[Rfam]
RNA: Group II catalytic intron D1-D4-2
RNA sequence: GGAGGGAUCGACCCUCCGGAGUCUGCCUGCAGGGGCCGGCUUCAAACCGCCCUCGUGCGGCAUUGGCUGAAGACCGUUGUCGUGAGCGUCGGGGGAGAAGGCGGGUUCACGUGGCCCGUCAGGU
Numbered sequence: 001g002g003a004g005g006g007a008u009c010g011a012c013c014c015u016c017c018g019g020a021g022u023c024u025g026c027c028u029g030c031a032g033g034g035g036c037c038g039g040c041u042u043c044a045a046a047c048c049g050c051c052c053u054c055g056u057g058c059g060g061c062a063u064u065g066g067c068u069g070a071a072g073a074c075c076g077u078u079g080u081c082g083u084g085a086g087c088g089u090c091g092g093g094g095g096a097g098a099a100g101g102c103g104g105g106u107u108c109a110c111g112u113g114g115c116c117c118g119u120c121a122g123g124u
Stems, first nucleotide, its partner, number of pairs: 001017005018043006025036004048123001051095002053092003057083002060080003064076003100120006